[Rfam]
RNA: mir-8904 microRNA precursor family
RNA sequence: CCUCAGGCUCCCUGGGACACAAACAAACACCUGCGCCCUGGGGAGAGUGCCCCGAGCUCCCUAAAGGGCUGCAGCGUGCAUGGCUGGACCCGGGAGCAGCU
Numbered sequence: 001c002c003u004c005a006g007g008c009u010c011c012c013u014g015g016g017a018c019a020c021a022a023a024c025a026a027a028c029a030c031c032u033g034c035g036c037c038c039u040g041g042g043g044a045g046a047g048u049g050c051c052c053c054g055a056g057c058u059c060c061c062u063a064a065a066g067g068g069c070u071g072c073a074g075c076g077u078g079c080a081u082g083g084c085u086g087g088a089c090c091c092g093g094g095a096g097c098a099g100c101u
Stems, first nucleotide, its partner, number of pairs: 007097006014090002018086002020083001022081001027077002031074004035069004040062006048054002